[Rfam]
RNA sequence: AAGAAUAAGCCCGAUAUGCCUCAUAUAUGUCUGAUAAUCGGUUCGGAUGUUUCUACCAAGUCACCGUAAAUGACUUGACUAUGAAGGCGGAAUCAGCUCAGU
Numbered sequence: 001a002a003g004a005a006u007a008a009g010c011c012c013g014a015u016a017u018g019c020c021u022c023a024u025a026u027a028u029g030u031c032u033g034a035u036a037a038u039c040g041g042u043u044c045g046g047a048u049g050u051u052u053c054u055a056c057c058a059a060g061u062c063a064c065c066g067u068a069a070a071u072g073a074c075u076u077g078a079c080u081a082u083g084a085a086g087g088c089g090g091a092a093u094c095a096g097c098u099c100a101g102u
Stems, first nucleotide, its partner, number of pairs: 018088004022083004029048006057077007